[Rfam]
RNA sequence: UAGAACAAUGUAGGUAAGGGAAGUCGGCAAGUUCGAUCCGUAACUUCGGGACAAGGAUUGGCUCUGAGGACUGGGCCCGUCGGGCUGGGAUCCGAAGCGGGUGUGGCACUGCACCGGGACUGGGCGAGACUGGCUGGGGCGACUCAGUCCGGUUCGGCCCGGACCAGCGUCGGGGCCUUCCCGUGGAAUGUCUCAGCUGCGCCGCGGACCGUGCAAUCGUGCGGACCGACGGUUUCGGCGGGCAACUAACAGCCGACUCAGAACUGGCACGGACUAAGGGAAUCCGACUGUCUAAUUAAAACAAAGCAUUGCGAUGGCCGGUGACCGGUGAUGACGCAAUGUGAUUUCUGCCCAGUGCUCUGAAUGUCAAAGUGAAGAAAUUCAUCCAAGCGCGGGUAAACGGCGGGAGUAACUAUGACUCUCUUAAGGUAGCCAAAUGCCUCGUCAUCUAAUUAGUGACGCGCAUGAAUGGAUUAACGAGAUUCCCAACUGUCCCUAUCUACUAUCUAGCGAAACCACAGCCAAGGGAACGGGCUUGGCAGA
Numbered sequence: 001u002a003g004a005a006c007a008a009u010g011u012a013g014g015u016a017a018g019g020g021a022a023g024u025c026g027g028c029a030a031g032u033u034c035g036a037u038c039c040g041u042a043a044c045u046u047c048g049g050g051a052c053a054a055g056g057a058u059u060g061g062c063u064c065u066g067a068g069g070a071c072u073g074g075g076c077c078c079g080u081c082g083g084g085c086u087g088g089g090a091u092c093c094g095a096a097g098c099g100g101g102u103g104u105g106g107c108a109c110u111g112c113a114c115c116g117g118g119a120c121u122g123g124g125c126g127a128g129a130c131u132g133g134c135u136g137g138g139g140c141g142a143c144u145c146a147g148u149c150c151g152g153u154u155c156g157g158c159c160c161g162g163a164c165c166a167g168c169g170u171c172g173g174g175g176c177c178u179u180c181c182c183g184u185g186g187a188a189u190g191u192c193u194c195a196g197c198u199g200c201g202c203c204g205c206g207g208a209c210c211g212u213g214c215a216a217u218c219g220u221g222c223g224g225a226c227c228g229a230c231g232g233u234u235u236c237g238g239c240g241g242g243c244a245a246c247u248a249a250c251a252g253c254c255g256a257c258u259c260a261g262a263a264c265u266g267g268c269a270c271g272g273a274c275u276a277a278g279g280g281a282a283u284c285c286g287a288c289u290g291u292c293u294a295a296u297u298a299a300a301a302c303a304a305a306g307c308a309u310u311g312c313g314a315u316g317g318c319c320g321g322u323g324a325c326c327g328g329u330g331a332u333g334a335c336g337c338a339a340u341g342u343g344a345u346u347u348c349u350g351c352c353c354a355g356u357g358c359u360c361u362g363a364a365u366g367u368c369a370a371a372g373u374g375a376a377g378a379a380a381u382u383c384a385u386c387c388a389a390g391c392g393c394g395g396g397u398a399a400a401c402g403g404c405g406g407g408a409g410u411a412a413c414u415a416u417g418a419c420u421c422u423c424u425u426a427a428g429g430u431a432g433c434c435a436a437a438u439g440c441c442u443c444g445u446c447a448u449c450u451a452a453u454u455a456g457u458g459a460c461g462c463g464c465a466u467g468a469a470u471g472g473a474u475u476a477a478c479g480a481g482a483u484u485c486c487c488a489a490c491u492g493u494c495c496c497u498a499u500c501u502a503c504u505a506u507c508u509a510g511c512g513a514a515a516c517c518a519c520a521g522c523c524a525a526g527g528g529a530a531c532g533g534g535c536u537u538g539g540c541a542g543a
Base pairs, nucleotide, nucleotide: 001509002508003507004506010503011502012501013500014499015498016497018495019494020493035059036058037057038056039055044049060265061264063262064261065260066259067258068257069254071252072251073250075243076242077241078240079239080238081237082236083235084197085196086195088193089192090191091190097184098183099182100181105177106176107175109173110172111171115167117165118164120162121161122160123159124158125157128154129153130152131151132150133149266270278487279486280485281484282483283482284481285479286478289303290302291301306342307341308340309339310338311337312336313335315331317329318328319327320326346473347472348471350404351403352402355401356400357397358396359395360394362393365392366391367390372385373384374383375382376381405423406422407421408420409419410418424428444460445459446458447457448456522539523538524537525536526535
Dot-bracket structure: ((((.....(((((((.(((..............(((((....(....).....)))))((.(((((((.(((.((((((((((((.((((.....((((....(((.(((...(.((.((((((..((((((...............))))))..)))))).)).)...))).)))...)))).....)))).))).....................................)))))))))......))).)..)))))).))(...).......(((((((((..(((.........)))..((((((((.(.((((.....)))).)...))))))))...(((.(((..((((((.(..(((....(((((....)))))....))))))))..)))))((((((.......))))))(...)...............(((((.......)))))..........)))....)).))))))).....))).)))))))..))))............(((((........)))))....